[Rfam]
About this RNA
The record is a 76-nucleotide RNA from Crocodylus porosus, which matches "Mammalian CPEB3 ribozyme" in Rfam. The organism belongs to Crocodylus, within Eukaryota. Gene Ontology term of the family: RNA nuclease activity.
RNA sequence: AUCCCAAGUCAGAGGCUAUAACAGAAGCGCUCAUGGCACAGCCAUGUCAGAGUCCAAUGAAUCUGUGAAUUCUGCU
Numbered sequence: 001a002u003c004c005c006a007a008g009u010c011a012g013a014g015g016c017u018a019u020a021a022c023a024g025a026a027g028c029g030c031u032c033a034u035g036g037c038a039c040a041g042c043c044a045u046g047u048c049a050g051a052g053u054c055c056a057a058u059g060a061a062u063c064u065g066u067g068a069a070u071u072c073u074g075c076u
Stems, first nucleotide, its partner, number of pairs: 014043004020076001022074005027039001029037001048065004053060002